Rfam assigns this 45-nucleotide RNA from Actinopolyspora mzabensis to the family "L31-Actinobacteria ribosomal protein leader".

[Rfam]
RNA sequence: CCGGUGCCGGUUCACCUCCGGUCGACGCCGCGAGGACCCGGUGCC
Numbered sequence: 001c002c003g004g005u006g007c008c009g010g011u012u013c014a015c016c017u018c019c020g021g022u023c024g025a026c027g028c029c030g031c032g033a034g035g036a037c038c039c040g041g042u043g044c045c
Stems, first nucleotide, its partner, number of pairs: 003045003007041004015035004019030004
The family's consensus secondary structure is taken from published work.